A member of the RNA family "Plastid-psbA-4 3UTR RNA" from Triosteum himalayanum, 56 nucleotides long. It is one of the family's seed sequences. It is annotated as a cis-regulatory element. Rfam describes the family as follows. Plastid psbA-4 is a non-coding RNA (ncRNA) present in plastids. It was identified in inverted repeat sequences in the 3 prime untranslate region (3UTR) of photosystem II quinone-binding protein (psbA). On this family, see Richter et al., Plant Commun 2023: "Retrograde signaling in plants: A critical review focusing on the GUN pathway and beyond".
[Rfam]
RNA sequence: AAAAGGAGCAAUAAUCCCCUUCUUGUUUUAUCAAGAGGGCGGCAUUGCUCCUUUUU
Numbered sequence: 001a002a003a004a005g006g007a008g009c010a011a012u013a014a015u016c017c018c019c020u021u022c023u024u025g026u027u028u029u030a031u032c033a034a035g036a037g038g039g040c041g042g043c044a045u046u047g048c049u050c051c052u053u054u055u056u
Stems, first nucleotide, its partner, number of pairs: 002054011018039001020037006